[Rfam]
RNA sequence: GCCAAAUGAUGAGAAUCAGAUUUCAUUAGCACUCUGUGUGAAGAUGACUUACAUCUAUCACCCAAUACUGAUGGCU
Numbered sequence: 001g002c003c004a005a006a007u008g009a010u011g012a013g014a015a016u017c018a019g020a021u022u023u024c025a026u027u028a029g030c031a032c033u034c035u036g037u038g039u040g041a042a043g044a045u046g047a048c049u050u051a052c053a054u055c056u057a058u059c060a061c062c063c064a065a066u067a068c069u070g071a072u073g074g075c076u
Stems, first nucleotide, its partner, number of pairs: 001075004029039004

Source information: The record is a 76-nucleotide RNA from Geotrypetes seraphini, which matches "Small nucleolar RNA SNORD83" in Rfam. On this family, see Jady and Kiss, Nucleic Acids Res 2000: "Characterisation of the U83 and U84 small nucleolar RNAs: two novel 2'-O-ribose methylation guide RNAs that lack complementarities to ribosomal RNAs". Gene Ontology terms of the family: nucleolus and RNA processing. The base pairs follow the family's consensus structure, which was predicted with PFOLD. The match comes from Rfam's covariance-model search (53 bits).